[Rfam]
RNA sequence: GCUGGGGAUGGUGGCGCAUCCUUGUAAUCCGGCGACUCGGAAGCUUGAACCAGGGAUGGUUUGCGGUGGGGAGUUCUGUUGCGUGUCCUCCCAUGUUGAGUGGGCGUCCGCACUAAGCUCAUCAUCAAUAUGGUUACCCUUGGGGAGCCUUGGGCAACCAGGUUGUUCUAAGGAGGUGUGAACAGGGCCAGGGGGGAAACCCAGCAGCCAAAAGCACCCGUGGUGAGCAGUAGUAGGAUAGCGCCUAUGAGUGGGUGGUUCGUAACAGCCUCACCAAUAUAGGCAGACUUGGUUCUUU
Numbered sequence: 001g002c003u004g005g006g007g008a009u010g011g012u013g014g015c016g017c018a019u020c021c022u023u024g025u026a027a028u029c030c031g032g033c034g035a036c037u038c039g040g041a042a043g044c045u046u047g048a049a050c051c052a053g054g055g056a057u058g059g060u061u062u063g064c065g066g067u068g069g070g071g072a073g074u075u076c077u078g079u080u081g082c083g084u085g086u087c088c089u090c091c092c093a094u095g096u097u098g099a100g101u102g103g104g105c106g107u108c109c110g111c112a113c114u115a116a117g118c119u120c121a122u123c124a125u126c127a128a129u130a131u132g133g134u135u136a137c138c139c140u141u142g143g144g145g146a147g148c149c150u151u152g153g154g155c156a157a158c159c160a161g162g163u164u165g166u167u168c169u170a171a172g173g174a175g176g177u178g179u180g181a182a183c184a185g186g187g188c189c190a191g192g193g194g195g196g197a198a199a200c201c202c203a204g205c206a207g208c209c210a211a212a213a214g215c216a217c218c219c220g221u222g223g224u225g226a227g228c229a230g231u232a233g234u235a236g237g238a239u240a241g242c243g244c245c246u247a248u249g250a251g252u253g254g255g256u257g258g259u260u261c262g263u264a265a266c267a268g269c270c271u272c273a274c275c276a277a278u279a280u281a282g283g284c285a286g287a288c289u290u291g292g293u294u295c296u297u298u
Stems, first nucleotide, its partner, number of pairs: 001044003004023007028041003047295008057285002060282002065275007076268008085260001087258002090255005096249001100248008108237002112234004117228009126165004131160005137154003142149002167173002175218005186209003193202003